[Rfam]
RNA sequence: CAGCUGCAGCUGGUUGAAGGGGACCAAAUCCAGUUCAGAGUUGAUCUGGUUCCUUUUUACCAGCUGCAGCAA
Numbered sequence: 001c002a003g004c005u006g007c008a009g010c011u012g013g014u015u016g017a018a019g020g021g022g023a024c025c026a027a028a029u030c031c032a033g034u035u036c037a038g039a040g041u042u043g044a045u046c047u048g049g050u051u052c053c054u055u056u057u058u059a060c061c062a063g064c065u066g067c068a069g070c071a072a
Stems, first nucleotide, its partner, number of pairs: 003070004008065007016057003020052003024049003028045003